[Rfam]
RNA sequence: AGGAGAUUAGCUUAAUUGGUAUAGCAUUCGUUUUACACACGAAAGAUUAUAGGUUCGACCUAUAUUUCCUA
Numbered sequence: 001a002g003g004a005g006a007u008u009a010g011c012u013u014a015a016u017u018g019g020u021a022u023a024g025c026a027u028u029c030g031u032u033u034u035a036c037a038c039a040c041g042a043a044a045g046a047u048u049a050u051a052g053g054u055u056c057g058a059c060c061u062a063u064a065u066u067u068c069c070u071a
Base pairs, nucleotide, nucleotide: 001070002069003068004067005066006065007064010025011024012023027043028042029041030040031039049063050062051061052060053059
RNA: tRNA